[Rfam]
RNA: Rhizobiales sRNA Atu_C7
Organism: Endobacterium cereale
RNA sequence: GUUCUCCCGGUGCGUCCCAUUGCUGCUGGCGUUCCCUCCCUCGCCAACAGUGACGUACCUACCUCAUGCCUCGCUUCGCUUCGGCGCAGCGAGGCAUUUUUU
Numbered sequence: 001g002u003u004c005u006c007c008c009g010g011u012g013c014g015u016c017c018c019a020u021u022g023c024u025g026c027u028g029g030c031g032u033u034c035c036c037u038c039c040c041u042c043g044c045c046a047a048c049a050g051u052g053a054c055g056u057a058c059c060u061a062c063c064u065c066a067u068g069c070c071u072c073g074c075u076u077c078g079c080u081u082c083g084g085c086g087c088a089g090c091g092a093g094g095c096a097u098u099u100u101u102u
Base pairs, nucleotide, nucleotide: 009059010058011057012056013055014054015053016052025048027046028045029044030043031042066097067096068095069094070093071092072091073090074089077086